A member of the RNA family "Bacterial small subunit ribosomal RNA" from uncultured bacterium AD66-C11, 583 nucleotides of a longer RNA. Rfam's curators put it in the seed alignment. On this family, see Cannone et al., BMC Bioinformatics 2002: "The comparative RNA web (CRW) site: an online database of comparative sequence and structure information for ribosomal, intron, and other RNAs".
RNA sequence: UUAACGGAGAGUUUGAUCCUGGCUCAGGACGAACGCUGGCGGCGUGCCUAAUACAUGCAAGUCGAACGAGGACCAGGGAGCUUGCUCCCUGUAACCGAGUGGCGAACGGGUGAGUAACACGUGACCAACCUGUCCUAGGGUGGGGGACAACCUGGGGAAACCCGGGCUAAUACCGCAUGAUGCUUCAUCCUCGCAUGAGGAUGAGAUCAAAGAGGGCCUCUGCUUGCAAGCUCUCGCCCAAGGAGGGGGUCGCGACGUAUCAGCUUGUUGGUGAGGUAACGGCUCACCAAGGCUAUGACGCGUAGCGGGUCUGAGAGGAUGAUCCGUCACAUUGGGACUGAGAUACGGCCCAGACUCCUACGGGAGGCAGCAGUAGGGAAUAUUGCGCAAUGGACGAAAGUCUGACGCAGCGACGCCGCGUGUGGGAGGAAGCCCUUCGGGGUGUAAACCACUGUCAGAGGGGAAGAACCCCGUCGGUCAGAAUAUGGCCGGCGGCUGACGGUACCCUCAGAGGAAGCGCCGGCUAACUCCGUGCCAGCAGCCGCGGUAAGACGGAGGGCGCAAGCGUUGUUCGGAAUUACUG
Numbered sequence: 001u002u003a004a005c006g007g008a009g010a011g012u013u014u015g016a017u018c019c020u021g022g023c024u025c026a027g028g029a030c031g032a033a034c035g036c037u038g039g040c041g042g043c044g045u046g047c048c049u050a051a052u053a054c055a056u057g058c059a060a061g062u063c064g065a066a067c068g069a070g071g072a073c074c075a076g077g078g079a080g081c082u083u084g085c086u087c088c089c090u091g092u093a094a095c096c097g098a099g100u101g102g103c104g105a106a107c108g109g110g111u112g113a114g115u116a117a118c119a120c121g122u123g124a125c126c127a128a129c130c131u132g133u134c135c136u137a138g139g140g141u142g143g144g145g146g147a148c149a150a151c152c153u154g155g156g157g158a159a160a161c162c163c164g165g166g167c168u169a170a171u172a173c174c175g176c177a178u179g180a181u182g183c184u185u186c187a188u189c190c191u192c193g194c195a196u197g198a199g200g201a202u203g204a205g206a207u208c209a210a211a212g213a214g215g216g217c218c219u220c221u222g223c224u225u226g227c228a229a230g231c232u233c234u235c236g237c238c239c240a241a242g243g244a245g246g247g248g249g250u251c252g253c254g255a256c257g258u259a260u261c262a263g264c265u266u267g268u269u270g271g272u273g274a275g276g277u278a279a280c281g282g283c284u285c286a287c288c289a290a291g292g293c294u295a296u297g298a299c300g301c302g303u304a305g306c307g308g309g310u311c312u313g314a315g316a317g318g319a320u321g322a323u324c325c326g327u328c329a330c331a332u333u334g335g336g337a338c339u340g341a342g343a344u345a346c347g348g349c350c351c352a353g354a355c356u357c358c359u360a361c362g363g364g365a366g367g368c369a370g371c372a373g374u375a376g377g378g379a380a381u382a383u384u385g386c387g388c389a390a391u392g393g394a395c396g397a398a399a400g401u402c403u404g405a406c407g408c409a410g411c412g413a414c415g416c417c418g419c420g421u422g423u424g425g426g427a428g429g430a431a432g433c434c435c436u437u438c439g440g441g442g443u444g445u446a447a448a449c450c451a452c453u454g455u456c457a458g459a460g461g462g463g464a465a466g467a468a469c470c471c472c473g474u475c476g477g478u479c480a481g482a483a484u485a486u487g488g489c490c491g492g493c494g495g496c497u498g499a500c501g502g503u504a505c506c507c508u509c510a511g512a513g514g515a516a517g518c519g520c521c522g523g524c525u526a527a528c529u530c531c532g533u534g535c536c537a538g539c540a541g542c543c544g545c546g547g548u549a550a551g552a553c554g555g556a557g558g559g560c561g562c563a564a565g566c567g568u569u570g571u572u573c574g575g576a577a578u579u580a581c582u583g
Base pairs, nucleotide, nucleotide: 009025010024011023012022013021027573028572029571030570032569033568034567035566036565037564039419040418041417042416043415044414045412046411047377052375053374054373056372057371058370061103062102063101066100067099070095074091075090076089077088078087079086080085110330111329112328120254121253122252123251124250125249126248129247130246134243135242136241138239139238140237142176144174145173151166152165153164154163155162156161182207184205185204186203187202188201190199191198192197212235213234214233215232216231217230256302257301258300263293264292265291268290269289270288271287272286273285274284275283305327306326307325308324309320310319311318312317332353333352334351335350336349355366356365357364358363383409385408386407387406391404392403393402394401395400422452423451424450425449432443433442434441435440456514458509459508460507461506462505466500472494473493474492475491476490477489478488517562518561519560520559521558528557529556530555531554532553538545539544